[Rfam]
RNA sequence: CGACUCCACGCGGGAGAGACCUGCAGUCAGAAGCCUCUGGACGCAGGCGCCGAAGGAGCAACUCCUCCCCGGAAUCUCUCAGGCAUCGGGUACCGCGUGGGCGAG
Number, nucleotide and partner (000 for none) at each position: 001c000002g000003a000004c000005u000006c100007c099008a098009c097010g096011c095012g094013g093014g000015a000016g000017a000018g000019a000020c047021c046022u045023g044024c000025a000026g000027u000028c000029a000030g000031a000032a000033g000034c000035c000036u000037c000038u000039g000040g000041a000042c000043g000044c023045a022046g021047g020048c000049g084050c083051c082052g080053a079054a000055g000056g078057a077058g076059c000060a000061a000062c072063u071064c000065c000066u000067c000068c000069c000070c000071g063072g062073a000074a000075u000076c058077u057078c056079u053080c052081a000082g051083g050084c049085a000086u000087c000088g000089g000090g000091u000092a000093c013094c012095g011096c010097g009098u008099g007100g006101g000102c000103g000104a000105g000